Overview: Rfam assigns this 92-nucleotide RNA from Tissierella creatinophila to the family "THF (Tetrahydrofolate) riboswitch aptamer". Tetrahydrofolate (THF) riboswitch was first reported for Ames et al. as an RNA motif in 5' untranslated (5'-UTR)regions of folate transport and biosynthesis genes in Firmicutes genomes. The match comes from Rfam's covariance-model search (58 bits).

[Rfam]
Nucleotides: 092
Stems, first nucleotide, its partner, number of pairs: 001092002004089002010080009019070003025054002028052007038086001040084003059066001
Number, partner (000 for none) and nucleotide at each position: 001092g002091a003000c004089a005088g006000a007000g008000u009000a010080g011079g012078u013077a014076a015075a016074a017073g018072g019070c020069g021068u022000u023000a024000a025054g026053u027000g028052u029051u030050a031049a032048g033047g034046g035000a036000u037000g038086g039000g040084a041083a042082g043000u044000u045000g046034u047033c048032c049031u050030u051029a052028a053026a054025c055000g056000a057000a058000u059066a060000u061000u062000a063000u064000u065000u066059u067000u068021g069020c070019g071000u072018c073017c074016u075015u076014u077013u078012a079011c080010u081000g082042c083041u084040u085000a086038u087000c088005c089004u090000u091002u092001u